Overview: Shown here is a 208-nucleotide RNA sequence from Podarcis muralis, a member of the family "Small nucleolar RNA SNORA73 family". The source organism's lineage runs through Eukaryota, Sarcopterygii, Laterata, Lacertibaenia and Podarcis. The family's RNA type in Rfam is H/ACA-box small nucleolar RNA. It scores 193 bits against the family's covariance model.
[Rfam]
RNA sequence: CCAACGGGGAUAUCUGGAGAGGUUGCUCUCUCUCAGCUCUGUCCAUGUGGCGUAUGGGAGCGUAGACCUUUGGGCUCUGUGACGUAUAGUCCCCUUCCACACCGUUGGAGAGCAAGCUGGGCCCUUGUGGUCUGCAACCUUCAUAUUCCUACUGCUUCUCUGAGUCUUUGGACGGUGACUGAGGAGAUAAACCAUGCAGGAGACACUC
Numbered sequence: 001c002c003a004a005c006g007g008g009g010a011u012a013u014c015u016g017g018a019g020a021g022g023u024u025g026c027u028c029u030c031u032c033u034c035a036g037c038u039c040u041g042u043c044c045a046u047g048u049g050g051c052g053u054a055u056g057g058g059a060g061c062g063u064a065g066a067c068c069u070u071u072g073g074g075c076u077c078u079g080u081g082a083c084g085u086a087u088a089g090u091c092c093c094c095u096u097c098c099a100c101a102c103c104g105u106u107g108g109a110g111a112g113c114a115a116g117c118u119g120g121g122c123c124c125u126u127g128u129g130g131u132c133u134g135c136a137a138c139c140u141u142c143a144u145a146u147u148c149c150u151a152c153u154g155c156u157u158c159u160c161u162g163a164g165u166c167u168u169u170g171g172a173c174g175g176u177g178a179c180u181g182a183g184g185a186g187a188u189a190a191a192c193c194a195u196g197c198a199g200g201a202g203a204c205a206c207u208c
Stems, first nucleotide, its partner, number of pairs: 001108007008044005014036003018029004047100004056093004060087001062085002065080001138200003142196003155186006164173003
Dot-bracket structure: ((((((((((((.(((.((((....))))....)))...)))))..((((.....(((((.((.(..............)...)).)..))))...)))).))))))).............................(((.(((..........((((((...(((....))).......)))))).......))).)))........
Annotation: Rfam links the family to the GO terms nucleolus and RNA processing. U17 (SNORA73A and SNORA73B) also known as E1 belongs to the H/ACA class of small nucleolar RNAs (snoRNAs). Vertebrate U17 is intron-encoded and ranges in length from 200-230 nucleotides, longer than most snoRNAs. It is one of the most abundant snoRNAs in human cells and is essential for the cleavage of pre-rRNA within the 5' external transcribed spacer (ETS).